[Rfam]
Overview
U1 spliceosomal RNA: a 163-nucleotide RNA from Cathartes aura. Taxonomically the source falls in Cathartes (Eukaryota, Sarcopterygii, Archelosauria, Theropoda). Rfam classes the family as a spliceosomal small nuclear RNA.

Nucleotides: 163
Base pairs, nucleotide, nucleotide: 012121013120014119015118016048018046019045020044023042024041025040026039027038049090050089051088052087054086056083057082058081060079061078062077063076093115094114095112096110097109098108099107137162138161139160140159141158142157145154
Number, partner (000 for none) and nucleotide at each position: 001000a002000u003000a004000c005000u006000u007000a008000c009000c010000u011000g012121g013120c014119a015118g016048g017000g018046g019045a020044g021000a022000c023042a024041c025040c026039a027038u028000g029000a030000u031000c032000a033000g034000g035000c036000a037000g038027a039026u040025g041024g042023u043000c044020u045019u046018c047000g048016c049090a050089g051088g052087g053000c054086g055000a056083g057082g058081c059000u060079c061078a062077u063076c064000c065000c066000c067000u068000g069000c070000a071000c072000u073000c074000c075000u076063g077062g078061u079060g080000u081058g082057u083056u084000g085000a086054c087052c088051c089050u090049u091000g092000a093115a094114a095112u096110u097109c098108c099107c100000c101000a102000a103000a104000u105000g106000u107099g108098g109097g110096a111000a112095a113000c114094u115093u116000g117000a118015c119014u120013g121012c122000a123000u124000a125000a126000u127000u128000u129000g130000u131000g132000g133000u134000a135000g136000u137162g138161g139160g140159g141158g142157a143000c144000u145154g146000c147000a148000u149000u150000c151000g152000c153000a154145c155000u156000u157142u158141c159140c160139c161138c162137u163000g